[Rfam]
RNA sequence: CGUAGAAGAUUGAAAGAAGCUCGUAUAAUUGUAGGAAUUGGCCUACAAGUUUCUACCUAAUCACCUAAAAUGAUUAGACUACGAGUGAGGCUGCUUUUUUA
Numbered sequence: 001c002g003u004a005g006a007a008g009a010u011u012g013a014a015a016g017a018a019g020c021u022c023g024u025a026u027a028a029u030u031g032u033a034g035g036a037a038u039u040g041g042c043c044u045a046c047a048a049g050u051u052u053c054u055a056c057c058u059a060a061u062c063a064c065c066u067a068a069a070a071u072g073a074u075u076a077g078a079c080u081a082c083g084a085g086u087g088a089g090g091c092u093g094c095u096u097u098u099u100u101a
Stems, first nucleotide, its partner, number of pairs: 019086007029048007057077007
Shown here is a 101-nucleotide RNA sequence from Thermoflavimicrobium daqui, a member of the family "Purine riboswitch aptamer".
Its family is annotated with purine nucleobase biosynthetic process in the Gene Ontology.
Pairs were carried over by alignment from the consensus structure, which is taken from published work.
Taxonomically the source falls in Thermoflavimicrobium (Bacteria, Bacillati, Bacilli, Thermoactinomycetaceae).